A member of the RNA family "Small nucleolar RNA snoR74" from Zostera marina, 134 nucleotides long.
It scores 79 bits against the family's covariance model.
The literature on the family includes a 2002 paper in Curr Biol by Marker et al., "Experimental RNomics: identification of 140 candidates for small non-messenger RNAs in the plant Arabidopsis thaliana".
It is annotated as an H/ACA-box small nucleolar RNA.
RNA sequence: CAAAAAGCAGUGAUUUGUCGUCAUUUUAUUAGGAUAAAUCUCUCGUAUGCUUCAGGUAGAUCACUGGCAUUGUUUUUGGGUGAGUCUUUUUUCAAUUGACAUGAUAAUAUGACUCAAUACACAAUGCCACACUC
Numbered sequence: 001c002a003a004a005a006a007g008c009a010g011u012g013a014u015u016u017g018u019c020g021u022c023a024u025u026u027u028a029u030u031a032g033g034a035u036a037a038a039u040c041u042c043u044c045g046u047a048u049g050c051u052u053c054a055g056g057u058a059g060a061u062c063a064c065u066g067g068c069a070u071u072g073u074u075u076u077u078g079g080g081u082g083a084g085u086c087u088u089u090u091u092u093c094a095a096u097u098g099a100c101a102u103g104a105u106a107a108u109a110u111g112a113c114u115c116a117a118u119a120c121a122c123a124a125u126g127c128c129a130c131a132c133u134c
Stems, first nucleotide, its partner, number of pairs: 005052003012040001014038006066128008081116006